Overview: A member of the RNA family "Lysine riboswitch aptamer" from Lachnospiraceae bacterium KM106-2, 175 nucleotides long. It scores 114 bits against the family's covariance model.
[Rfam]
RNA sequence: UACAUGGAUAGAGGUCGCGAUUGCUAUUAGUAAUUCUGUGGAGGUAAGCACAGAGAAACAGAAUAAAAGGAGCCGUCGCCGAAACUUACAACUGAUGCUUUAAGGUUGUAACGUUGGGGUCAUGCAGAAUAUGUAUGACACUGUCACAAAUGACUUGUGGAGAGCUAUCAUGAUA
Numbered sequence: 001u002a003c004a005u006g007g008a009u010a011g012a013g014g015u016c017g018c019g020a021u022u023g024c025u026a027u028u029a030g031u032a033a034u035u036c037u038g039u040g041g042a043g044g045u046a047a048g049c050a051c052a053g054a055g056a057a058a059c060a061g062a063a064u065a066a067a068a069g070g071a072g073c074c075g076u077c078g079c080c081g082a083a084a085c086u087u088a089c090a091a092c093u094g095a096u097g098c099u100u101u102a103a104g105g106u107u108g109u110a111a112c113g114u115u116g117g118g119g120u121c122a123u124g125c126a127g128a129a130u131a132u133g134u135a136u137g138a139c140a141c142u143g144u145c146a147c148a149a150a151u152g153a154c155u156u157g158u159g160g161a162g163a164g165c166u167a168u169c170a171u172g173a174u175a
Stems, first nucleotide, its partner, number of pairs: 007169005017079005023073003033064007083115003086111008116142002119139008144160006